[Rfam]
RNA sequence: UUGCCAUGAUCCACCUCCUAUCAGGUGCAAAUGGAAGUACGGGGUCGGUGUGGCAACACCAGCCCCGUGCGCUU
Numbered sequence: 001u002u003g004c005c006a007u008g009a010u011c012c013a014c015c016u017c018c019u020a021u022c023a024g025g026u027g028c029a030a031a032u033g034g035a036a037g038u039a040c041g042g043g044g045u046c047g048g049u050g051u052g053g054c055a056a057c058a059c060c061a062g063c064c065c066c067g068u069g070c071g072c073u074u
Stems, first nucleotide, its partner, number of pairs: 004034003012027005037070009047060005
A member of the RNA family "Plasmid transferred anti-sense RNA" from Corticimicrobacter populi, 74 nucleotides long. The family's RNA type in Rfam is antitoxin RNA. On this family, see Findeiss et al., RNA Biol 2010: "A novel family of plasmid-transferred anti-sense ncRNAs". The source organism's lineage runs through Bacteria, Pseudomonadati, Pseudomonadota, Betaproteobacteria and Corticimicrobacter.